[Rfam]
RNA sequence: AGGGGGAGGUUGGCUCCAUGUGUGGUACUGAGAUAAUGGCUGCCCACAGUACCACGCAUGGCGCCCUCCUCCCCCUACA
Dot-bracket structure: ((((.((((..(((.((((..(((((((((................)))))))))..)))).)))..)))).))))...
RNA: mir-9186 microRNA precursor family
Organism: Myotis brandtii